[Rfam]
RNA: Group II catalytic intron D1-D4-3
Organism: Desulfocucumis palustris
Nucleotides: 169
Base pairs, nucleotide, nucleotide: 001011002010003009004008023169025167026166027165031160036155037154038153039152040151041150042146043145044144045143046142058141059140060139061138062136063135069132070131071130073128074127075126076125077124078123079122081109082108083107084106087102088101089100090099
Number, partner (000 for none) and nucleotide at each position: 001011u002010c003009c004008g005000u006000c007000g008004c009003g010002g011001a012000a013000u014000c015000u016000g017000a018000a019000g020000g021000a022000a023169g024000c025167c026166u027165g028000a029000g030000a031160c032000c033000a034000a035000a036155c037154g038153c039152u040151u041150g042146a043145c044144c045143c046142g047000a048000g049000g050000u051000g052000c053000a054000c055000g056000a057000a058141c059140c060139c061138a062136g063135u064000u065000u066000g067000a068000g069132g070131c071130u072000g073128u074127u075126c076125u077124g078123g079122c080000c081109g082108g083107a084106u085000g086000a087102g088101u089100u090099g091000c092000c093000a094000a095000g096000a097000c098000a099090c100089a101088a102087c103000g104000a105000a106084g107083u108082c109081c110000a111000a112000a113000g114000c115000c116000g117000c118000c119000a120000a121000g122079g123078u124077c125076a126075g127074g128073g129000c130071a131070g132069u133000a134000g135063a136062c137000a138061u139060g140059g141058g142046c143045g144044g145043g146042u147000g148000a149000a150041u151040g152039a153038g154037c155036g156000g157000a158000a159000a160031g161000a162000u163000g164000a165027c166026g167025g168000a169023u